[Rfam]
RNA sequence: UUUCGCAUUGGGCUUACGCGCCACAAUGCCAUUGCCAACAGCGUGUAACAGGUGGGUUUUCCCUAAACCUGUACCGCCAUA
Numbered sequence: 001u002u003u004c005g006c007a008u009u010g011g012g013c014u015u016a017c018g019c020g021c022c023a024c025a026a027u028g029c030c031a032u033u034g035c036c037a038a039c040a041g042c043g044u045g046u047a048a049c050a051g052g053u054g055g056g057u058u059u060u061c062c063c064u065a066a067a068c069c070u071g072u073a074c075c076g077c078c079a080u081a
Base pairs, nucleotide, nucleotide: 004043005042006041009038011036012035013034016032018030020029021028051078052077053076054075056074057073062071
RNA: antisense RNA of dnaA mRNA